[Rfam]
RNA sequence: AUUUAUUUAAAUCCAGAUUAUUGAGGAGAACAUCAUGCUAUUUACAGGAAAACAAUUAUUUUAAUUUAAGCAGAUGUCAACUCACGGACACUUGCUUAGAAAAAAGUGUCCGAAUGCCAAGAUUCAAAGCCUAGCAUUCGCUAGGUUUUUUUAUGUCAUCAAU
Numbered sequence: 001a002u003u004u005a006u007u008u009a010a011a012u013c014c015a016g017a018u019u020a021u022u023g024a025g026g027a028g029a030a031c032a033u034c035a036u037g038c039u040a041u042u043u044a045c046a047g048g049a050a051a052a053c054a055a056u057u058a059u060u061u062u063a064a065u066u067u068a069a070g071c072a073g074a075u076g077u078c079a080a081c082u083c084a085c086g087g088a089c090a091c092u093u094g095c096u097u098a099g100a101a102a103a104a105a106g107u108g109u110c111c112g113a114a115u116g117c118c119a120a121g122a123u124u125c126a127a128a129g130c131c132u133a134g135c136a137u138u139c140g141c142u143a144g145g146u147u148u149u150u151u152u153a154u155g156u157c158a159u160c161a162a163u
Base pairs, nucleotide, nucleotide: 002126006122007121008120014116015115016022017021026083027082028081030077031076032075033074034073036072037071038070039069049057050056085112086111087110088109089108090107091106092105093104127148128147129146130145131144132143133142134141135140
The record is a 163-nucleotide RNA from Acinetobacter gerneri, which matches "Acinetobacter sRNA 28" in Rfam. By type it is a small RNA. The base pairs follow the family's consensus structure, which was predicted with RNAfold. NCBI's taxonomy places the organism under Bacteria, Gammaproteobacteria, Moraxellaceae, Acinetobacter, Acinetobacter gerneri. For this family Rfam cites "Identification of novel regulatory small RNAs in Acinetobacter baumannii" (Sharma et al., PLoS One, 2014).